[Rfam]
RNA sequence: AACGUGCUCCGGGGUCGGUGAGAAUCCGAACCGGCGGUGAAAGUCCGCGACCCGCGCUGCGUGAGAAUCCCGAAUCUGGGGCGCUCACCGGCCGGUUGAGCUGGUGAAAUUCCAGCACCGACGGUUAAAGUCCGGAUGAGAGGCGCACGAG
Dot-bracket structure: ..(((((.((.....(((.......))).[[((((((.....[[))))...((........................................))....(((((.......)))))]])).(((.....]]))).......)).)))))..
This 151-nucleotide RNA from Cryobacterium frigoriphilum belongs to the Rfam family "FMN riboswitch aptamer (RFN element)". Gene Ontology term of the family: FMN binding. A search with the family's covariance model found it, with a score of 96 bits.